RNA sequence: AAAGAUGUUUUCUAGGGUUCCGAGCUAUAAAAGAGGCUGGCUGGUCCGAGAGAAAACGCAGUUAUUGCAAUAAGCAGUAGCUGUCCACGGCGGGAUAAAAGCCCGGGAGAA
Numbered sequence: 001a002a003a004g005a006u007g008u009u010u011u012c013u014a015g016g017g018u019u020c021c022g023a024g025c026u027a028u029a030a031a032a033g034a035g036g037c038u039g040g041c042u043g044g045u046c047c048g049a050g051a052g053a054a055a056a057c058g059c060a061g062u063u064a065u066u067g068c069a070a071u072a073a074g075c076a077g078u079a080g081c082u083g084u085c086c087a088c089g090g091c092g093g094g095a096u097a098a099a100a101g102c103c104c105g106g107g108a109g110a111a
Base pairs, nucleotide, nucleotide: 007057008056009055010054011053012052015047016046020044021043022041023038024037025036026035028033058084059083060082061081062080063079064078065077066076067075086106088109092104093103094102
Guanidine-I riboswitch aptamer: a 111-nucleotide RNA from Paenibacillus roseus.
Rfam's curators write: This family represents a conserved RNA structure found upstream of the ykkC and yxkD genes in Bacillus subtilis and related genes in other bacteria. The function of this family is unclear although it has been suggested that it may function to switch on efflux pumps and detoxification systems in response to harmful environmental molecules.